[Rfam]
RNA sequence: AAGUGAGGUGAUGAAUUAUUGAUUCCCUAUUGGUUUGAUUGCCGCAAUGAUGGCAUAAUAUUUCCUCAAACUUGCUGAUCACUU
Numbered sequence: 001a002a003g004u005g006a007g008g009u010g011a012u013g014a015a016u017u018a019u020u021g022a023u024u025c026c027c028u029a030u031u032g033g034u035u036u037g038a039u040u041g042c043c044g045c046a047a048u049g050a051u052g053g054c055a056u057a058a059u060a061u062u063u064c065c066u067c068a069a070a071c072u073u074g075c076u077g078a079u080c081a082c083u084u
Stems, first nucleotide, its partner, number of pairs: 002083004040055004
Rfam assigns this 84-nucleotide RNA from Ceratodon purpureus to the family "Small nucleolar RNA Z102/R77". The base pairs follow the family's consensus structure, which was predicted with PFOLD. The family has 9 seed sequences and 1,346 matches in Rfam 15.1. The family is grouped with related families in Rfam's "SNORD44 clan". Taxonomically the source falls in Ceratodon (Eukaryota, Streptophyta, Embryophyta, Pseudoditrichales). The match comes from Rfam's covariance-model search (61 bits). On this family, see Chen et al., Nucleic Acids Res 2003: "The high diversity of snoRNAs in plants: identification and comparative study of 120 snoRNA genes from Oryza sativa". It is annotated as a C/D-box small nucleolar RNA.